The record is a 64-nucleotide RNA from Andreprevotia lacus, which matches "Betaproteobacteria toxic small RNA" in Rfam. Rfam's curators write: Overexpression in amino aid rich medium attenuates growth, suggesting role in repressing amino acid intake and metabolism. The literature on the family includes a 2012 paper in Genome Res by Kimelman et al., "A vast collection of microbial genes that are toxic to bacteria". The match comes from Rfam's covariance-model search (52 bits).
[Rfam]
RNA sequence: CGUCUCCUCCAUCCUCCUUCUUUGGUGGAAUUCAGCGCAAUCCGUACGGGUUGCGUUUUUUUUU
Numbered sequence: 001c002g003u004c005u006c007c008u009c010c011a012u013c014c015u016c017c018u019u020c021u022u023u024g025g026u027g028g029a030a031u032u033c034a035g036c037g038c039a040a041u042c043c044g045u046a047c048g049g050g051u052u053g054c055g056u057u058u059u060u061u062u063u064u
Stems, first nucleotide, its partner, number of pairs: 008029006034057008